About this RNA:
The record is an 81-nucleotide RNA from Mastigocoleus testarum, which matches "Photosynthesis regulatory RNA1" in Rfam. The family's RNA type in Rfam is small RNA. Gene Ontology terms of the family: regulation of photosynthesis and regulation of translation. Rfam 15.1 lists 92 matches to the family in 57 species. Formerly known as Syr1 discovered in Synechocystis sp PCC 6803, is a regulatory factor controlling photosynthetic functions. PsrR1 interacts with the ribosome binding regions of several photosynthesis-related mRNAs. In particular, psaL mRNA is processed by RNase E only in the presence of PsrR1. On this family, see Georg et al., Plant Cell 2014: "The small regulatory RNA SyR1/PsrR1 controls photosynthetic functions in cyanobacteria".
Nucleotides: 081
Base pairs, nucleotide, nucleotide: 057076058075059074060073061072062071063070
Number, partner (000 for none) and nucleotide at each position: 001000a002000a003000a004000a005000a006000a007000u008000u009000a010000g011000a012000u013000u014000u015000u016000g017000g018000c019000a020000u021000c022000g023000g024000u025000a026000u027000c028000u029000c030000c031000c032000a033000u034000c035000g036000a037000c038000a039000u040000u041000u042000g043000g044000a045000u046000u047000c048000c049000u050000c051000a052000a053000u054000g055000u056000c057076c058075c059074c060073c061072g062071g063070c064000u065000a066000u067000u068000u069000a070063g071062u072061c073060g074059g075058g076057g077000a078000u079000u080000u081000u